[Rfam]
RNA sequence: CGGAGUGUAGCUCAGCUUGGCUAGAGCGCCUGCUUUGGGAGCAGGAGGUCGCAGGUUCGAGUCCUGUCACUCCGA
Numbered sequence: 001c002g003g004a005g006u007g008u009a010g011c012u013c014a015g016c017u018u019g020g021c022u023a024g025a026g027c028g029c030c031u032g033c034u035u036u037g038g039g040a041g042c043a044g045g046a047g048g049u050c051g052c053a054g055g056u057u058c059g060a061g062u063c064c065u066g067u068c069a070c071u072c073c074g075a
Stems, first nucleotide, its partner, number of pairs: 001074007010027004029045005051067005
A member of the RNA family "tRNA" from Planctomicrobium piriforme, 75 nucleotides long.
It scores 67 bits against the family's covariance model.
NCBI's taxonomy places the organism under Bacteria, Pseudomonadati, Planctomycetota, Planctomycetales, Planctomicrobium.
Gene Ontology term of the family: triplet codon-amino acid adaptor activity.
By type it is a transfer RNA.